[Rfam]
RNA sequence: AAAACGACAAGCGAUGGAGUUCGCUUUAAAUGCUUCUGGCUGAUGACUCCUACAAACGG
Numbered sequence: 001a002a003a004a005c006g007a008c009a010a011g012c013g014a015u016g017g018a019g020u021u022c023g024c025u026u027u028a029a030a031u032g033c034u035u036c037u038g039g040c041u042g043a044u045g046a047c048u049c050c051u052a053c054a055a056a057c058g059g
Base pairs, nucleotide, nucleotide: 010025011024012023013022016050017049018048019047020046021045032040033039
Record summary:
Shown here is a 59-nucleotide sequence from Sporobacter termitidis, a member of the family "Fluoride riboswitch aptamer (crcB RNA motif)". Pairs were carried over by alignment from the consensus structure, which is taken from published work. For this family Rfam cites "Widespread genetic switches and toxicity resistance proteins for fluoride" (Baker et al., Science, 2012).